[Rfam]
RNA sequence: GGUUCAUGAUGAUUGGUAAAAGGUCUGAUGCACCAAAUGUCACAGUCCCUUCCUUGCCCUCGGCUCCCAGCAGCCCCCGUGUUUCCUGGCACAGUGCAGUCGUGUGCUGGGACAGUGGAGCAGCUGAUACUCAGGGACCCCGUUGGUGUGUGUUUGUGAGAGUGAACAGUUCACAGCCGACCCAGGUCCAACAUGAGCGCUUACUCAGGAGCUUGAUGAGUGGCGGCAGGGCGUGGCGGGGCAUGAUCUCAAGUUUUCAAUCUGAGACC
Dot-bracket structure: ((((................................(.(((....((.((.(...........((((((((.((..........((((((((((......).)))))))))........)).)))).......(.((((.......((((.(((..(.......)..))).)))).........)))))..................))))........).)).))..................))).)................))))
RNA: Small Cajal body specific RNA 6